[Rfam]
RNA sequence: CACGGUCAAAUGUAGUAACAGGAAGCCACGGCUUUUCAGGUGAAAGACGACCGAUGUAAAAGGAGAGAUACUUCCUUGGGUUUCAAUCCCUAAAACUGCCCUUUGAUGCCCUUACACGGACGCUUCUUGCAUGGUGGGGUAUGUGCCUAACCCAUUUCAUGUGUCAGGGCAAAGCAGAUUAGACGGCACCCAACAAUUCAUCUGUACGAAAGGCGAAUACUUUUUAUUAUGACA
Numbered sequence: 001c002a003c004g005g006u007c008a009a010a011u012g013u014a015g016u017a018a019c020a021g022g023a024a025g026c027c028a029c030g031g032c033u034u035u036u037c038a039g040g041u042g043a044a045a046g047a048c049g050a051c052c053g054a055u056g057u058a059a060a061a062g063g064a065g066a067g068a069u070a071c072u073u074c075c076u077u078g079g080g081u082u083u084c085a086a087u088c089c090c091u092a093a094a095a096c097u098g099c100c101c102u103u104u105g106a107u108g109c110c111c112u113u114a115c116a117c118g119g120a121c122g123c124u125u126c127u128u129g130c131a132u133g134g135u136g137g138g139g140u141a142u143g144u145g146c147c148u149a150a151c152c153c154a155u156u157u158c159a160u161g162u163g164u165c166a167g168g169g170c171a172a173a174g175c176a177g178a179u180u181a182g183a184c185g186g187c188a189c190c191c192a193a194c195a196a197u198u199c200a201u202c203u204g205u206a207c208g209a210a211a212g213g214c215g216a217a218u219a220c221u222u223u224u225u226a227u228u229a230u231g232a233c234a
Base pairs, nucleotide, nucleotide: 004052005051006050007049019040078090079089080088098214099213100212102210103209104208105207107206108170109169110168111167112166114164115163116162117161122130123129133156134155135154136153137152138151174205175204176203177202178201180200182191
This 234-nucleotide sequence belongs to the Rfam family "RT-2 RNA". The family's RNA type in Rfam is small RNA. Rfam's curators put it in the seed alignment.